[Rfam]
RNA sequence: CUGUUGCCCUUCAUUCCACCGGAGUCUGUUAACGCAAGGGCCACGCCAGAUUCCGGUCGGAUGAAGUCCACCAG
Numbered sequence: 001c002u003g004u005u006g007c008c009c010u011u012c013a014u015u016c017c018a019c020c021g022g023a024g025u026c027u028g029u030u031a032a033c034g035c036a037a038g039g040g041c042c043a044c045g046c047c048a049g050a051u052u053c054c055g056g057u058c059g060g061a062u063g064a065a066g067u068c069c070a071c072c073a074g
Base pairs, nucleotide, nucleotide: 009066010065011064012063013062014061018057019056021054022053023052024051026049027048028047
Rfam assigns this 74-nucleotide RNA sequence from Petromyzon marinus to the family "mir-205 microRNA precursor family". Its family is annotated with miRNA-mediated post-transcriptional gene silencing and RISC complex in the Gene Ontology. The family has 44 seed sequences and 1,154 matches in Rfam 15.1.